[Rfam]
RNA: Small nucleolar RNA Z279/snoR105/snoR108
Organism: Microthlaspi erraticum
RNA sequence: GGGAAAUGAGGAAAGGGUUUAAUCUCGCUUAAUGCGUGAAGAGCGUUCCGCUCAAAGCCUGUUACGACAAUUGGGCGCUCCAAUUUUCAUAUCAUCUGAUCCC
Numbered sequence: 001g002g003g004a005a006a007u008g009a010g011g012a013a014a015g016g017g018u019u020u021a022a023u024c025u026c027g028c029u030u031a032a033u034g035c036g037u038g039a040a041g042a043g044c045g046u047u048c049c050g051c052u053c054a055a056a057g058c059c060u061g062u063u064a065c066g067a068c069a070a071u072u073g074g075g076c077g078c079u080c081c082a083a084u085u086u087u088c089a090u091a092u093c094a095u096c097u098g099a100u101c102c103c
Base pairs, nucleotide, nucleotide: 001103002102003101004100015093016092018091024038026036027035028034041080042079043078044077045076046075047074059073061071062070